[Rfam]
About this RNA:
Rfam assigns this 58-nucleotide RNA sequence from synthetic construct to the family "Pab160 RNA".
RNA sequence: GGGCCACGGAAACCGCGCGCGGUGAUCAAUGAGCCGCGUUCGCUCCCGUGGCCCACAA
Numbered sequence: 001g002g003g004c005c006a007c008g009g010a011a012a013c014c015g016c017g018c019g020c021g022g023u024g025a026u027c028a029a030u031g032a033g034c035c036g037c038g039u040u041c042g043c044u045c046c047c048g049u050g051g052c053c054c055a056c057a058a
Base pairs, nucleotide, nucleotide: 001054002053003052004051005050006049007048008047009046017039018038019037020036021035022034023033
The base pairs follow the family's consensus structure. Rfam links the family to the GO term RNA processing. About the family: By using various computational and experimental approaches in three Pyrococcus genomes seven H/ACA sRNAs and 15 pseudouridine resides on rRNA were identified. One H/ACA motif was shown to guide up to three distinct pseudouridylations. A reference for the family is Muller et al. (2008), "Combined in silico and experimental identification of the Pyrococcus abyssi H/ACA sRNAs and their target sites in ribosomal RNAs", Nucleic Acids Res. The family's RNA type in Rfam is H/ACA-box small nucleolar RNA. It is one of the family's seed sequences.